[Rfam]
RNA: Bacterial RNase P class A
Organism: Lachnospiraceae bacterium MD329
RNA sequence: GGAGUAAGUCAGACGGUUGCGCCUUAUUUAAAGGUGAGGAAAGUCCGGGCUUUACAGAGCAGGGUGCCGGCUAACGGCCGGCGGAGGCGACUUUAGGGAUAGUGCAACAGAAAAUAAACGCCAACACAUUGUUGGUAAGUGUGGAAACGUGCGGUAAGAGCGCACGGCGUCCAUAGGUAACUAUGGAGGCGUGUAAACCCCACCCAAAGCAACUUUGGGAACGUUAAGCUUGCUCGGCGUGUUCCCUUGAAAGGCUUGAGCGUACUGGUAACUUUACGUCGAGAUAGAUAAUCGUCAAAUACAGAAUCCGGCUUACAGAUUUGCUCCUUUA
Numbered sequence: 001g002g003a004g005u006a007a008g009u010c011a012g013a014c015g016g017u018u019g020c021g022c023c024u025u026a027u028u029u030a031a032a033g034g035u036g037a038g039g040a041a042a043g044u045c046c047g048g049g050c051u052u053u054a055c056a057g058a059g060c061a062g063g064g065u066g067c068c069g070g071c072u073a074a075c076g077g078c079c080g081g082c083g084g085a086g087g088c089g090a091c092u093u094u095a096g097g098g099a100u101a102g103u104g105c106a107a108c109a110g111a112a113a114a115u116a117a118a119c120g121c122c123a124a125c126a127c128a129u130u131g132u133u134g135g136u137a138a139g140u141g142u143g144g145a146a147a148c149g150u151g152c153g154g155u156a157a158g159a160g161c162g163c164a165c166g167g168c169g170u171c172c173a174u175a176g177g178u179a180a181c182u183a184u185g186g187a188g189g190c191g192u193g194u195a196a197a198c199c200c201c202a203c204c205c206a207a208a209g210c211a212a213c214u215u216u217g218g219g220a221a222c223g224u225u226a227a228g229c230u231u232g233c234u235c236g237g238c239g240u241g242u243u244c245c246c247u248u249g250a251a252a253g254g255c256u257u258g259a260g261c262g263u264a265c266u267g268g269u270a271a272c273u274u275u276a277c278g279u280c281g282a283g284a285u286a287g288a289u290a291a292u293c294g295u296c297a298a299a300u301a302c303a304g305a306a307u308c309c310g311g312c313u314u315a316c317a318g319a320u321u322u323g324c325u326c327c328u329u330u331a
Base pairs, nucleotide, nucleotide: 001327002326003325004324005323006322007321008320009319010318012296013295014294015293016292017291018290020036021035022034023033024032025031041314042313043312045311046310047309048308049307050209051208052207053206057235058234059233060232062205063204064203065202066201067081068080069079070078071077082096083094084093085092086091097200098199102198103197104194105193106192118140119139120136121135122134123133124132125131126130148166149165150164151163152162153161167190168188170187171186172185173184174183175182176181213253214252215251216250217246218245219244220243221242222241226240228238229237230236260279261278262277263276264275267272